[Rfam]
A member of the RNA family "U11 spliceosomal RNA", 127 nucleotides long. Rfam classes the family as a spliceosomal small nuclear RNA. Rfam's curators put it in the seed alignment.
RNA sequence: AAAAAGGGCUUUUGCCGUGCGUGGCACGGGGGGGCUUCGGCCGCCCUCGCGGAAUUGACAUCAAGAGAUUUCGGAAGCACAAUUUUUGUGGGAGGGGUCGCCGGUAACCGCUCGUUCUGGCGCCCCG
Numbered sequence: 001a002a003a004a005a006g007g008g009c010u011u012u013u014g015c016c017g018u019g020c021g022u023g024g025c026a027c028g029g030g031g032g033g034g035c036u037u038c039g040g041c042c043g044c045c046c047u048c049g050c051g052g053a054a055u056u057g058a059c060a061u062c063a064a065g066a067g068a069u070u071u072c073g074g075a076a077g078c079a080c081a082a083u084u085u086u087u088g089u090g091g092g093a094g095g096g097g098u099c100g101c102c103g104g105u106a107a108c109c110g111c112u113c114g115u116u117c118u119g120g121c122g123c124c125c126c127g
Stems, first nucleotide, its partner, number of pairs: 008078005013026005027049006033042003050073007095125004100121005106116003
Dot-bracket structure: .......((((((((((....)))))(((((((((....))).))))))(((((((..........))))))))))))................((((.(((((.(((.....))))))))))))..